[Rfam]
RNA: mir-3492 microRNA precursor family
Organism: Schistosoma mansoni
RNA sequence: GGCUAUCUGAGUCUAUGCCGAGAUUUUGUCAGACACAAGCCCACCACGGUUGAUGAGACUCCCAAGAUAAGUGAGGCA
Numbered sequence: 001g002g003c004u005a006u007c008u009g010a011g012u013c014u015a016u017g018c019c020g021a022g023a024u025u026u027u028g029u030c031a032g033a034c035a036c037a038a039g040c041c042c043a044c045c046a047c048g049g050u051u052g053a054u055g056a057g058a059c060u061c062c063c064a065a066g067a068u069a070a071g072u073g074a075g076g077c078a
Base pairs, nucleotide, nucleotide: 002077003076004075006073008071011068012067013066016064017063020061021060022059024058025057026056027055028054029053030052